[Rfam]
RNA sequence: UUUAAAUCUUGAGAUAUAGGCUGAACACUAAACAGUGCUAGGCUGCAGGACAGAUUCGGACUUCUCCGUUGUUGCUAUAAUUUAGACUUGAAAAUGACCUUCUUAGAUCUUGAAGUCCACAUGAAAGUUAUAGGCCUAUGUCUUGCCUAAU
Numbered sequence: 001u002u003u004a005a006a007u008c009u010u011g012a013g014a015u016a017u018a019g020g021c022u023g024a025a026c027a028c029u030a031a032a033c034a035g036u037g038c039u040a041g042g043c044u045g046c047a048g049g050a051c052a053g054a055u056u057c058g059g060a061c062u063u064c065u066c067c068g069u070u071g072u073u074g075c076u077a078u079a080a081u082u083u084a085g086a087c088u089u090g091a092a093a094a095u096g097a098c099c100u101u102c103u104u105a106g107a108u109c110u111u112g113a114a115g116u117c118c119a120c121a122u123g124a125a126a127g128u129u130a131u132a133g134g135c136c137u138a139u140g141u142c143u144u145g146c147c148u149a150a151u
Base pairs, nucleotide, nucleotide: 005151007149009145011144012143013142014141015140016139017138018137019136020135021133022132023131025129027128028127029126035122036121037120041117042116044114047111048110049109050108053104054103058099059098062096071087072086073085